Rfam assigns this 53-nucleotide RNA from Malus domestica to the family "Plastid-atpF group II-D1 intron". About the family: Plastid atpF is a non-coding RNA (ncRNA) recognised in plastids.

[Rfam]
RNA sequence: GGAAUUUUUUUCGAUAUAAAACACUUAUGUCGAUAAAAUGAUUUGAAGUGAUC
Numbered sequence: 001g002g003a004a005u006u007u008u009u010u011u012c013g014a015u016a017u018a019a020a021a022c023a024c025u026u027a028u029g030u031c032g033a034u035a036a037a038a039u040g041a042u043u044u045g046a047a048g049u050g051a052u053c
Stems, first nucleotide, its partner, number of pairs: 011033007
It scores 62 bits against the family's covariance model. On this family, see Richter et al., Plant Commun 2023: "Retrograde signaling in plants: A critical review focusing on the GUN pathway and beyond". Rfam 15.1 lists 1,372 matches to the family in 227 species. Pairs were carried over by alignment from the consensus structure, which was predicted with LocARNA.